[Rfam]
RNA sequence: CCGCGGACGGCCGUUCGCGGGGAACUGACACCGGUACCUGAUACGGCCGGUGCAG
Numbered sequence: 001c002c003g004c005g006g007a008c009g010g011c012c013g014u015u016c017g018c019g020g021g022g023a024a025c026u027g028a029c030a031c032c033g034g035u036a037c038c039u040g041a042u043a044c045g046g047c048c049g050g051u052g053c054a055g
Base pairs, nucleotide, nucleotide: 001020002019003018004017005016006015007014008013025055026054027053029052030051031050032049033048034047035046
The family of this 55-nucleotide RNA sequence from Streptomyces niveus is "L17-Actino-Proteobacteria ribosomal protein leader". It is annotated as a cis-regulatory leader. The family's consensus secondary structure is taken from published work. The source organism's lineage runs through Bacteria, Bacillati, Actinomycetota, Streptomyces and Streptomyces niveus. For this family Rfam cites "Discovery of 20 novel ribosomal leader candidates in bacteria and archaea" (Eckert and Weinberg, BMC Microbiol, 2020).